[Rfam]
A member of the RNA family "Small nucleolar RNA SNORA79" from Strigamia maritima, 139 nucleotides long. The base pairs follow the family's consensus structure, which was predicted with RNAalifold.
RNA sequence: UGAUGGCAUUUUCCACUGGCAUCUUUUAGUAUUGAUGCUAGAUUUUAGUCCAUCAUAGAAUAAAUACAACUUCUCUUCACACAGUGUCAAUUGCUUUUACGCUUUUAUGUUGGCAUUGCUUUUCUGAAGUUGAACAUAU
Numbered sequence: 001u002g003a004u005g006g007c008a009u010u011u012u013c014c015a016c017u018g019g020c021a022u023c024u025u026u027u028a029g030u031a032u033u034g035a036u037g038c039u040a041g042a043u044u045u046u047a048g049u050c051c052a053u054c055a056u057a058g059a060a061u062a063a064a065u066a067c068a069a070c071u072u073c074u075c076u077u078c079a080c081a082c083a084g085u086g087u088c089a090a091u092u093g094c095u096u097u098u099a100c101g102c103u104u105u106u107a108u109g110u111u112g113g114c115a116u117u118g119c120u121u122u123u124c125u126g127a128a129g130u131u132g133a134a135c136a137u138a139u
Stems, first nucleotide, its partner, number of pairs: 001055006009048001016041004021036003068131006082118009
About the family: ACA65 (SNORA79) is a member of the H/ACA class of snoRNAs that guide the sites of modification of uridines to pseudouridines. This snoRNA was identified by computational screening and its expression in mouse experimentally verified by Northern blot and primer extension analysis.